The record is a 99-nucleotide RNA sequence from Streptococcus sp. sy004, which matches "PreQ1-II (pre queuosine) riboswitch aptamer" in Rfam. The organism belongs to Streptococcus, within Bacteria. About the family: preQ1-II riboswitch was first reported for Weinberg et al. 2007 it was recognised in Streptococcaceae and Lactococcus families in 5' untranslated regions of genes of a membrane protein classified as COG4708 or DUF988. Meyers et al. 2008 confirm that preQ1-II recognise the queuosine (Q) precursor pre-queuosine 1 (preQ1). Q is a hyper modified nucleoside present in some anticodons in tRNAs (Try, Asn, Asp and His). The base pairs follow the family's consensus structure, which is taken from published work. The match comes from Rfam's covariance-model search (84 bits). For this family Rfam cites "Structural determinants for ligand capture by a class II preQ1 riboswitch" (Kang et al., Proc Natl Acad Sci U S A, 2014).
[Rfam]
Nucleotides: 099
Stems, first nucleotide, its partner, number of pairs: 018030005032058007046089005069082004
Number, partner (000 for none) and nucleotide at each position: 001000u002000a003000u004000g005000c006000u007000a008000u009000a010000a011000u012000g013000a014000g015000c016000g017000a018030g019029u020028u021027g022026c023000a024000a025000g026022g027021c028020a029019a030018c031000c032058c033057u034056u035055g036054g037053u038052g039000c040000u041000u042000c043000u044000u045000a046089u047088c048087c049086u050085u051000u052038c053037a054036c055035c056034a057033a058032g059000c060000a061000u062000a063000u064000u065000a066000a067000a068000c069082g070081u071080g072079g073000a074000u075000u076000u077000u078000a079072c080071c081070a082069c083000u084000a085050a086049a087048g088047g089046a090000g091000a092000u093000a094000a095000u096000a097000a098000u099000g